[Rfam]
RNA: IMES-2 RNA motif
RNA sequence: AACUGACUUAAGAGGCAACUCUUAACUGGCCAGGUAAGGAAAGACCGAGAGGUUCAAGCUCACCGGGCAGAAAACCCCACAGAGUAGCGCUUAACAUAGUGGGGUGGCGGGUUCGACGGUAGCGCAUACAACGGCGAACCAA
Numbered sequence: 001a002a003c004u005g006a007c008u009u010a011a012g013a014g015g016c017a018a019c020u021c022u023u024a025a026c027u028g029g030c031c032a033g034g035u036a037a038g039g040a041a042a043g044a045c046c047g048a049g050a051g052g053u054u055c056a057a058g059c060u061c062a063c064c065g066g067g068c069a070g071a072a073a074a075c076c077c078c079a080c081a082g083a084g085u086a087g088c089g090c091u092u093a094a095c096a097u098a099g100u101g102g103g104g105u106g107g108c109g110g111g112u113u114c115g116a117c118g119g120u121a122g123c124g125c126a127u128a129c130a131a132c133g134g135c136g137a138a139c140c141a142a
Stems, first nucleotide, its partner, number of pairs: 008025007026070003030067002033064003037060002043054004074105007087125005110140006117133002
Dot-bracket structure: .......(((((((....)))))))(((.((.(((.((....((((....))))....)).))).)))))...(((((((......[[[[[.......)))))))....((((((.((..]]]]]......)).))))))..